[Rfam]
RNA sequence: GUAGAUGCUCAUUCCACCUCUUAUGUUUGCGCAAGCUUCAUAAACCUGGGAAUGAUGCAGAGCCGUUUACGAUACCUGUUGUCCAGCCACCACUAUCGUCGCGAGAUCUUAAUGGUAAAGGGCACUACGUUGAGUCAGGUAUCAGUCAAAUUGUCUUACCGACCUGAACUUUAUACCUGCCGGACUGGCAGGUUUUUUUUU
Numbered sequence: 001g002u003a004g005a006u007g008c009u010c011a012u013u014c015c016a017c018c019u020c021u022u023a024u025g026u027u028u029g030c031g032c033a034a035g036c037u038u039c040a041u042a043a044a045c046c047u048g049g050g051a052a053u054g055a056u057g058c059a060g061a062g063c064c065g066u067u068u069a070c071g072a073u074a075c076c077u078g079u080u081g082u083c084c085a086g087c088c089a090c091c092a093c094u095a096u097c098g099u100c101g102c103g104a105g106a107u108c109u110u111a112a113u114g115g116u117a118a119a120g121g122g123c124a125c126u127a128c129g130u131u132g133a134g135u136c137a138g139g140u141a142u143c144a145g146u147c148a149a150a151u152u153g154u155c156u157u158a159c160c161g162a163c164c165u166g167a168a169c170u171u172u173a174u175a176c177c178u179g180c181c182g183g184a185c186u187g188g189c190a191g192g193u194u195u196u197u198u199u200u201u
Stems, first nucleotide, its partner, number of pairs: 001063002006059003009055004015050001017049001019042001027035001071143007081123004092113001094111002153163003173195001175193008

A member of the RNA family "GlmZ RNA activator of glmS mRNA" from Erwinia mallotivora, 201 nucleotides long.
Rfam classes the family as a small RNA.
The base pairs follow the family's consensus structure, which is taken from published work.
About the family: This RNA was discovered in E. coli during a large scale screen. The sraJ gene was expressed in early logarithmic phase, but its level decreased with cell growth.
Clan: Glm clan.